[Rfam]
RNA sequence: GAGCGUUCUCAGGGCGGGGCGAAAUUCCCCACCGGCGGUAACGACCGGCGAGCCGAAGGCUCUUCGGUCGAAGCCCGCGAGCGCUUCGAGCAGCCUGCUUGAAGGUCAGCAGAUCCGGUUGAACUCCGGAGCCGACGGUUAUAGUUCGGAUGGAAGAGAGCAAGC
Numbered sequence: 001g002a003g004c005g006u007u008c009u010c011a012g013g014g015c016g017g018g019g020c021g022a023a024a025u026u027c028c029c030c031a032c033c034g035g036c037g038g039u040a041a042c043g044a045c046c047g048g049c050g051a052g053c054c055g056a057a058g059g060c061u062c063u064u065c066g067g068u069c070g071a072a073g074c075c076c077g078c079g080a081g082c083g084c085u086u087c088g089a090g091c092a093g094c095c096u097g098c099u100u101g102a103a104g105g106u107c108a109g110c111a112g113a114u115c116c117g118g119u120u121g122a123a124c125u126c127c128g129g130a131g132c133c134g135a136c137g138g139u140u141a142u143a144g145u146u147c148g149g150a151u152g153g154a155a156g157a158g159a160g161c162a163a164g165c
Base pairs, nucleotide, nucleotide: 005161006160007159008158009157010156017029018028019027031145032144033134034133035078036077037076038075073132074131081110082109114130115129116128117127118126136148137147138146
Shown here is a 165-nucleotide RNA sequence from Sinorhizobium alkalisoli, a member of the family "FMN riboswitch aptamer (RFN element)". Pairs were carried over by alignment from the consensus structure, which is taken from published work. Taxonomically the source falls in Sinorhizobium (Bacteria, Alphaproteobacteria, Hyphomicrobiales, Rhizobiaceae).